Mammalian CPEB3 ribozyme: a 76-nucleotide sequence from Alligator mississippiensis. A search with the family's covariance model found it, with a score of 36 bits. Lineage of the source: Eukaryota > Bilateria > Deuterostomia > Tetrapoda > Alligator. Its family is annotated with RNA nuclease activity in the Gene Ontology. The mammalian CPEB3 ribozyme is a self cleaving RNA located in the second intron of the CPEB3 gene which belongs to a family of genes regulating messenger RNA polyadenylation.
[Rfam]
RNA sequence: UCAUAAAUUCAAGGCCAAAGCAGAAGUGCUCAUGGUGCAGCCCUAUCGGAUUCCAAACAAAUCUGUUAAUUCUGCU
Number, nucleotide and partner (000 for none) at each position: 001u000002c000003a000004u000005a000006a000007a000008u000009u000010c000011a000012a000013g042014g041015c040016c000017a000018a000019a076020g075021c074022a073023g072024a071025a070026g038027u037028g036029c000030u000031c000032a000033u000034g000035g000036u028037g027038c026039a000040g015041c014042c013043c000044u000045a000046u000047c065048g064049g063050a062051u061052u060053c000054c000055a000056a000057a000058c000059a000060a052061a051062u050063c049064u048065g047066u000067u000068a000069a000070u025071u024072c023073u022074g021075c020076u019